MIR1886 microRNA precursor family: a 52-nucleotide RNA from Solanum commersonii. The organism belongs to Solanum, within Eukaryota. Rfam 15.1 lists 1,053 matches to the family in 6 species. The family's consensus secondary structure was predicted with RNAalifold. Rfam links the family to the GO terms miRNA-mediated post-transcriptional gene silencing and RISC complex.
RNA sequence: UGAGAUGGAAUUAGCGUUUGGACAUGCAAUUUUACUCUGAUUCCAUAUCAUG
Number, nucleotide and partner (000 for none) at each position: 001u050002g049003a048004g000005a046006u045007g044008g043009a042010a041011u040012u039013a038014g037015c000016g035017u034018u029019u028020g027021g000022a000023c000024a000025u000026g000027c020028a019029a018030u000031u000032u000033u000034a017035c016036u000037c014038u013039g012040a011041u010042u009043c008044c007045a006046u005047a000048u003049c002050a001051u000052g000